[Rfam]
RNA sequence: UCGGCGAAUGCCGGUGGAACUACAUCACUGUUAAUGAGGCUGUCGCGGGUUCGAAUCCCGCCGGAGGCAAAAUACCGCCACCGUAGCUCAGUUGGUAGAGCACCUGUUCCACCCAACCUUGUCGCCACUUU
Numbered sequence: 001u002c003g004g005c006g007a008a009u010g011c012c013g014g015u016g017g018a019a020c021u022a023c024a025u026c027a028c029u030g031u032u033a034a035u036g037a038g039g040c041u042g043u044c045g046c047g048g049g050u051u052c053g054a055a056u057c058c059c060g061c062c063g064g065a066g067g068c069a070a071a072a073u074a075c076c077g078c079c080a081c082c083g084u085a086g087c088u089c090a091g092u093u094g095g096u097a098g099a100g101c102a103c104c105u106g107u108u109c110c111a112c113c114c115a116a117c118c119u120u121g122u123c124g125c126c127a128c129u130u131u
Stems, first nucleotide, its partner, number of pairs: 003126005013113007038104002045061005052095001062083003066079002086101004
Notes: The record is a 131-nucleotide sequence from Massilia horti, which matches "Y RNA-like" in Rfam. Lineage of the source: Bacteria > Pseudomonadati > Burkholderiales > Oxalobacteraceae > Massilia. The base pairs follow the family's consensus structure, which is taken from published work. Rfam describes the family as follows. In Deinococcus radiodurans Rsr is tethered via Y RNA to the exoribonuclease PNPase and channels single-stranded RNA into the PNPase cavity. Rsr and Y RNA enhance degradation of structured RNAs by PNPase. This role could be conserved, as Rsr and ncRNAs called YrlA and YrlB (Y RNA like) also associate with PNPase in an evolutionary distant bacterium Salmonella Typhimurium.